Shown here is a 57-nucleotide RNA sequence from Microvirga thermotolerans, a member of the family "terC RNA". Pairs were carried over by alignment from the consensus structure, which is taken from published work.
RNA sequence: CGGUGGCCGGGCCCCUCUGGCGGAUGCGGGACGCAUCCGCGAUGUCGGAACCGACGG
Numbered sequence: 001c002g003g004u005g006g007c008c009g010g011g012c013c014c015c016u017c018u019g020g021c022g023g024a025u026g027c028g029g030g031a032c033g034c035a036u037c038c039g040c041g042a043u044g045u046c047g048g049a050a051c052c053g054a055c056g057g
Stems, first nucleotide, its partner, number of pairs: 003051002007048004020040008
The family's RNA type in Rfam is cis-regulatory element.